Shown here is a 78-nucleotide RNA sequence from Schistosoma mattheei, a member of the family "mir-3492 microRNA precursor family".

RNA sequence: AGCUUUUCGAAUCUGUGCAGAGGUUUCGUCAGACAUCAACCCAUUAGGACUGAUCAGAUUUCUAAGAUAAGUGAAGUU
Number, nucleotide and partner (000 for none) at each position: 001a000002g077003c076004u075005u074006u073007u000008c071009g000010a000011a068012u067013c066014u000015g000016u000017g062018c000019a000020g061021a060022g059023g000024u058025u057026u056027c000028g054029u053030c052031a000032g000033a000034c000035a000036u000037c000038a000039a000040c000041c000042c000043a000044u000045u000046a000047g000048g000049a000050c000051u000052g030053a029054u028055c000056a026057g025058a024059u022060u021061u020062c017063u000064a000065a000066g013067a012068u011069a000070a000071g008072u000073g006074a005075a004076g003077u002078u000
Rfam 15.1 lists 21,496 matches to the family in 13 species. The source organism's lineage runs through Eukaryota, Opisthokonta, Neodermata, Schistosomatidae and Schistosoma.